[Rfam]
RNA sequence: AGAUAAAAACCCUCGUAAUCACUGAUUACAAAGGCUUUUAUCUGGAGCCCUCUUGCGAGAGCUCCAUCAUGGGAGAGGAGAAACCGGACGAAGAGCUUAUGGGGAAACGUAAGUCUUCUCCGCGG
Numbered sequence: 001a002g003a004u005a006a007a008a009a010c011c012c013u014c015g016u017a018a019u020c021a022c023u024g025a026u027u028a029c030a031a032a033g034g035c036u037u038u039u040a041u042c043u044g045g046a047g048c049c050c051u052c053u054u055g056c057g058a059g060a061g062c063u064c065c066a067u068c069a070u071g072g073g074a075g076a077g078g079a080g081a082a083a084c085c086g087g088a089c090g091a092a093g094a095g096c097u098u099a100u101g102g103g104g105a106a107a108c109g110u111a112a113g114u115c116u117u118c119u120c121c122g123c124g125g
Base pairs, nucleotide, nucleotide: 011033013031015029016028017027018026019025037073038072039071040070041069046063047062048061050059051058085122086121087120088119090118091117092116093115095114096113097112098111099110
Dot-bracket structure: ..........(.(.(((((.....))))).).)...(((((....(((.((......)).))).....)))))...........((((.((((.(((((..........)))))))))))))...

This 125-nucleotide sequence from Paenibacillus selenitireducens belongs to the Rfam family "ylbH leader". Rfam's curators write: This family is a putative regulatory RNA structure that is found upstream of the ylbH gene in B. subtilis and related low GC Gram-positive bacteria. The family's RNA type in Rfam is cis-regulatory leader. A search with the family's covariance model found it, with a score of 69 bits.